[Rfam]
RNA: mir-4874 microRNA precursor family
RNA sequence: GCUGUUUCAUCCCCGCCCAGUUUGUAGCAUCCAGCUGAGCUGGCAGUCCUGCAGCAGCUGGCUGGUUGGUGCAAACAGGGGGUGGAUGGAGCGC
Numbered sequence: 001g002c003u004g005u006u007u008c009a010u011c012c013c014c015g016c017c018c019a020g021u022u023u024g025u026a027g028c029a030u031c032c033a034g035c036u037g038a039g040c041u042g043g044c045a046g047u048c049c050u051g052c053a054g055c056a057g058c059u060g061g062c063u064g065g066u067u068g069g070u071g072c073a074a075a076c077a078g079g080g081g082g083u084g085g086a087u088g089g090a091g092c093g094c
Stems, first nucleotide, its partner, number of pairs: 004092009013082002016080003020076007028068002031065006038059005043052003